[Rfam]
RNA sequence: UUUUAUGAUGAUUAUAUUUAUCGACCGGGCGGACAUAUUAGUAUUAAUGAAGAGAUAGCUUUGCAUUAUUAUCAUUCUUUUGUGUACAAAUUUUUUAAAGGAAUGGUAGCUUAGCGUAUUAUUUCUUUGUUGAGAAUUGAUGAUUGGUCAUGAGAUAGCUGAUU
Numbered sequence: 001u002u003u004u005a006u007g008a009u010g011a012u013u014a015u016a017u018u019u020a021u022c023g024a025c026c027g028g029g030c031g032g033a034c035a036u037a038u039u040a041g042u043a044u045u046a047a048u049g050a051a052g053a054g055a056u057a058g059c060u061u062u063g064c065a066u067u068a069u070u071a072u073c074a075u076u077c078u079u080u081u082g083u084g085u086a087c088a089a090a091u092u093u094u095u096u097a098a099a100g101g102a103a104u105g106g107u108a109g110c111u112u113a114g115c116g117u118a119u120u121a122u123u124u125c126u127u128u129g130u131u132g133a134g135a136a137u138u139g140a141u142g143a144u145u146g147g148u149c150a151u152g153a154g155a156u157a158g159c160u161g162a163u164u
Stems, first nucleotide, its partner, number of pairs: 007159001009157002018153004023149005036142007044133003048129010058115003063110001069109013

Small nucleolar RNA snR70: a 164-nucleotide RNA sequence from Naumovozyma dairenensis.
The family's RNA type in Rfam is C/D-box small nucleolar RNA.
On this family, see Filipowicz et al., Acta Biochim Pol 1999: "Structure and biogenesis of small nucleolar RNAs acting as guides for ribosomal RNA modification".
The family's consensus secondary structure was predicted with CMfinder.
Rfam links the family to the GO terms nucleolus and RNA processing.